[Rfam]
RNA: mir-263 microRNA precursor family
Organism: Mytilus edulis
RNA sequence: CUUUUUCUGUAAAUGGCACUGGUAGAAUUCACGGAUUAUAAUACCAACCGUGUUCUCCCGGUCGCCAUCUAUGGAGAGGG
Numbered sequence: 001c002u003u004u005u006u007c008u009g010u011a012a013a014u015g016g017c018a019c020u021g022g023u024a025g026a027a028u029u030c031a032c033g034g035a036u037u038a039u040a041a042u043a044c045c046a047a048c049c050g051u052g053u054u055c056u057c058c059c060g061g062u063c064g065c066c067a068u069c070u071a072u073g074g075a076g077a078g079g080g
Stems, first nucleotide, its partner, number of pairs: 003078008013068005018062001020060003025055002030052005